[Rfam]
RNA sequence: CCGGCACCGGUUCACCCCGGUACGCCCGUCCCGGGGAUCCGGCGGCC
Numbered sequence: 001c002c003g004g005c006a007c008c009g010g011u012u013c014a015c016c017c018c019g020g021u022a023c024g025c026c027c028g029u030c031c032c033g034g035g036g037a038u039c040c041g042g043c044g045g046c047c
Base pairs, nucleotide, nucleotide: 003047004046005045007042008041009040010039015036016035017034018033019032020031022029023028

Shown here is a 47-nucleotide sequence from Saccharomonospora iraqiensis, a member of the family "L31-Actinobacteria ribosomal protein leader".
Taxonomically the source falls in Saccharomonospora iraqiensis (Bacteria, Actinomycetes, Pseudonocardiales, Saccharomonospora).
Rfam classes the family as a cis-regulatory leader.
It is one of the family's seed sequences.